[Rfam]
RNA sequence: ACCAGGAUCCGGGCCCCUCUGGCGGGAAUGAGCCGACCACCCCGCGAUGUCGGAUCCUCGCA
Numbered sequence: 001a002c003c004a005g006g007a008u009c010c011g012g013g014c015c016c017c018u019c020u021g022g023c024g025g026g027a028a029u030g031a032g033c034c035g036a037c038c039a040c041c042c043c044g045c046g047a048u049g050u051c052g053g054a055u056c057c058u059c060g061c062a
Base pairs, nucleotide, nucleotide: 006056007055008054009053010052011051012050022045023044024043025042026041029039030038
RNA: terC RNA